[Rfam]
RNA sequence: GAGCAAUGGACAAAAAGGUUUUACUACUGAUCUUUAUGACUAUGAAGGUUUCGACAAUUGAUUUGAGCUCA
Numbered sequence: 001g002a003g004c005a006a007u008g009g010a011c012a013a014a015a016a017g018g019u020u021u022u023a024c025u026a027c028u029g030a031u032c033u034u035u036a037u038g039a040c041u042a043u044g045a046a047g048g049u050u051u052c053g054a055c056a057a058u059u060g061a062u063u064u065g066a067g068c069u070c071a
Stems, first nucleotide, its partner, number of pairs: 001070004014035007
A member of the RNA family "Small nucleolar RNA U2-30" from Canis lupus, 71 nucleotides long.
Rfam links the family to the GO terms RNA processing and nucleolus.
The family's consensus secondary structure is taken from published work.